[Rfam]
Description:
This 136-nucleotide sequence from Mycoavidus cysteinexigens belongs to the Rfam family "Group II catalytic intron D1-D4-4". Taxonomically the source falls in Mycoavidus (Bacteria, Pseudomonadati, Betaproteobacteria, Burkholderiales). Group II introns are found in rRNA, tRNA and mRNA of organelles in fungi, plants and protists, and also in mRNA in bacteria. A reference for the family is Lehmann and Schmidt (2003), "Group II introns: structure and catalytic versatility of large natural ribozymes", Crit Rev Biochem Mol Biol.
RNA sequence: UAGCAGGAGUUAAGCCUGCCGGGGCAAGAGUUAGGAGUCCCGUAGCUUGGAUAGCAGCGCGUAGGGAAACCAAAGUGUUGAAACCUAUUGACAGGCGCUUCGUAGGAAGUGCGCGAGUUGCCGGGCCGUAACAAAA
Number, nucleotide and partner (000 for none) at each position: 001u000002a000003g000004c000005a000006g000007g000008a000009g000010u000011u000012a000013a000014g000015c000016c000017u000018g000019c000020c042021g041022g040023g039024g038025c000026a000027a000028g000029a000030g000031u000032u000033a000034g000035g000036a000037g000038u024039c023040c022041c021042g020043u000044a000045g000046c000047u000048u000049g000050g089051a088052u087053a086054g085055c080056a079057g078058c077059g076060c075061g000062u000063a000064g071065g070066g000067a000068a000069a000070c065071c064072a000073a000074a000075g060076u059077g058078u057079u056080g055081a000082a000083a000084c000085c054086u053087a052088u051089u050090g000091a000092c000093a000094g000095g000096c111097g110098c109099u108100u107101c106102g000103u000104a000105g000106g101107a100108a099109g098110u097111g096112c000113g129114c128115g127116a000117g000118u000119u000120g000121c000122c000123g000124g000125g000126c000127c115128g114129u113130a000131a000132c000133a000134a000135a000136a000